RNA sequence: GUCCACAUCAAAAGAAAAAAAACCUCCCUGACCUAUACAGGCCUCUGCUAUGGGGGUGAUGGCCAGUCCUGGUGUCUUGAGUGAUU
Numbered sequence: 001g002u003c004c005a006c007a008u009c010a011a012a013a014g015a016a017a018a019a020a021a022a023c024c025u026c027c028c029u030g031a032c033c034u035a036u037a038c039a040g041g042c043c044u045c046u047g048c049u050a051u052g053g054g055g056g057u058g059a060u061g062g063c064c065a066g067u068c069c070u071g072g073u074g075u076c077u078u079g080a081g082u083g084a085u086u
Stems, first nucleotide, its partner, number of pairs: 001086001004083003010077001011075001017073001020070001024066002026062002029059001031057004038052002040049003
RNA: Small nucleolar RNA SNORD86